[Rfam]
RNA sequence: UAUAGAAAAUAGCUCCGAGCAUAGCCGCCUAAAAGAAAAUCAUGGUUGUUAUGCCGUUAGGGUCUUGUUUGGAAACAAUGAGGCCUCCUGUUGGAAAGGAGUUUUAAUUUUUUACAG
Number, nucleotide and partner (000 for none) at each position: 001u000002a000003u000004a110005g000006a108007a000008a000009a000010u000011a103012g102013c101014u100015c099016c098017g000018a000019g054020c053021a052022u051023a050024g049025c048026c000027g046028c045029c044030u000031a000032a000033a000034a040035g000036a000037a000038a000039a000040u034041c000042a000043u000044g029045g028046u027047u000048g025049u024050u023051a022052u021053g020054c019055c000056g000057u000058u000059a000060g086061g085062g084063u083064c082065u081066u080067g079068u000069u078070u077071g076072g000073a000074a000075a000076c071077a070078a069079u067080g066081a065082g064083g063084c062085c061086u060087c094088c093089u000090g000091u000092u000093g088094g087095a000096a000097a000098g016099g015100a014101g013102u012103u011104u000105u000106a000107a000108u006109u000110u004111u000112u000113u000114a000115c000116a000117g000

Description
The family of this 117-nucleotide RNA from Sedimentibacter hydroxybenzoicus is "Molybdenum/Tungsten riboswitch aptamer (Moco RNA motif)". Rfam links the family to the GO terms tungstate binding, regulation of gene expression and molybdenum ion binding. It scores 64 bits against the family's covariance model.